[Rfam]
RNA sequence: UACUGGAGUGAUGAAAAAGUAUCUUCAGGUGUGGCUGUGGCCACCUUGGCCACCUGUGUGUCACUUGCUAAUGCAGGGACUUGUCAUAGUUACACUGACUGUUA
Numbered sequence: 001u002a003c004u005g006g007a008g009u010g011a012u013g014a015a016a017a018a019g020u021a022u023c024u025u026c027a028g029g030u031g032u033g034g035c036u037g038u039g040g041c042c043a044c045c046u047u048g049g050c051c052a053c054c055u056g057u058g059u060g061u062c063a064c065u066u067g068c069u070a071a072u073g074c075a076g077g078g079a080c081u082u083g084u085c086a087u088a089g090u091u092a093c094a095c096u097g098a099c100u101g102u103u104a
Stems, first nucleotide, its partner, number of pairs: 001104002004101003

This 104-nucleotide RNA sequence from Pongo abelii belongs to the Rfam family "Small nucleolar RNA SNORD46". Rfam links the family to the GO terms nucleolus and RNA processing. The organism belongs to Pongo, within Eukaryota. It scores 111 bits against the family's covariance model. It is annotated as a C/D-box small nucleolar RNA. Rfam describes the family as follows. U40 is a C/D box small nucleolar RNA, also known as snoZ153 in plants. The human sequence has also been annotated in the sequence databases as U46. U40 is encoded in intron 2 of the ribosomal protein S8 gene in human, and is hypothesised to guide methylation of 2'-O-ribose residues on 28S ribosomal RNA. This family represents vertebrate U40.